[Rfam]
RNA sequence: AUCUCCUGGGCGCGUUCUCCUCCCAUUAGCGCCCUCGAGUGUUCCCCUCUGGAGGUUUAGCCCUAACGGGCACUUCCAUUCAACUUAGCCGGGUCUUCGCGAUCCGGCUUUUUU
Numbered sequence: 001a002u003c004u005c006c007u008g009g010g011c012g013c014g015u016u017c018u019c020c021u022c023c024c025a026u027u028a029g030c031g032c033c034c035u036c037g038a039g040u041g042u043u044c045c046c047c048u049c050u051g052g053a054g055g056u057u058u059a060g061c062c063c064u065a066a067c068g069g070g071c072a073c074u075u076c077c078a079u080u081c082a083a084c085u086u087a088g089c090c091g092g093g094u095c096u097u098c099g100c101g102a103u104c105c106g107g108c109u110u111u112u113u114u
Stems, first nucleotide, its partner, number of pairs: 001040001003039003008034006050078007087109009

Rfam assigns this 114-nucleotide RNA sequence from Mesorhizobium hungaricum to the family "Alphaproteobacterial ar15".
Rfam links the family to the GO term protein binding.
Clan: suhB sRNA clan.
It scores 45 bits against the family's covariance model.
The base pairs follow the family's consensus structure.